[Rfam]
RNA sequence: UGCUGACUGCUGGGGGCCACAGAAGGAGCGUUCACGUGUGGUCCCUGUCAGGUUUUUGCCUGCAAAUCAUUCU
Numbered sequence: 001u002g003c004u005g006a007c008u009g010c011u012g013g014g015g016g017c018c019a020c021a022g023a024a025g026g027a028g029c030g031u032u033c034a035c036g037u038g039u040g041g042u043c044c045c046u047g048u049c050a051g052g053u054u055u056u057u058g059c060c061u062g063c064a065a066a067u068c069a070u071u072c073u
Stems, first nucleotide, its partner, number of pairs: 013045006021073004026068002028039003049062005
Rfam assigns this 73-nucleotide sequence from Eptatretus burgeri to the family "Mammalian CPEB3 ribozyme". The source organism's lineage runs through Eukaryota, Chordata, Cyclostomata, Myxini and Eptatretus. The mammalian CPEB3 ribozyme is a self cleaving RNA located in the second intron of the CPEB3 gene which belongs to a family of genes regulating messenger RNA polyadenylation. The base pairs follow the family's consensus structure, which is taken from published work.